[Rfam]
RNA sequence: AAGGGUGCAGUGAUGAAUCAUUUAUACUGUGGACUAGAGUUUCUGAUCUGGGAAUCUCUCCCAGAAGUUGAAGACUAACCCUUGGCUGUCUGAGUACUCUU
Numbered sequence: 001a002a003g004g005g006u007g008c009a010g011u012g013a014u015g016a017a018u019c020a021u022u023u024a025u026a027c028u029g030u031g032g033a034c035u036a037g038a039g040u041u042u043c044u045g046a047u048c049u050g051g052g053a054a055u056c057u058c059u060c061c062c063a064g065a066a067g068u069u070g071a072a073g074a075c076u077a078a079c080c081c082u083u084g085g086c087u088g089u090c091u092g093a094g095u096a097c098u099c100u101u
Base pairs, nucleotide, nucleotide: 001101002100003099004098005097006096007095008094040073041072042071043070047066048064049063050062051061052060
Shown here is a 101-nucleotide RNA sequence from Manihot esculenta, a member of the family "Small nucleolar RNA Z157/R69/R10". The source organism's lineage runs through Eukaryota, Tracheophyta, Magnoliopsida, eudicotyledons and Manihot. By type it is a C/D-box small nucleolar RNA. Pairs were carried over by alignment from the consensus structure, which was predicted with PFOLD. Its Rfam clan is "SNORD52 clan". Rfam 15.1 lists 836 matches to the family in 232 species. The literature on the family includes a 2003 paper in Nucleic Acids Res by Chen et al., "The high diversity of snoRNAs in plants: identification and comparative study of 120 snoRNA genes from Oryza sativa".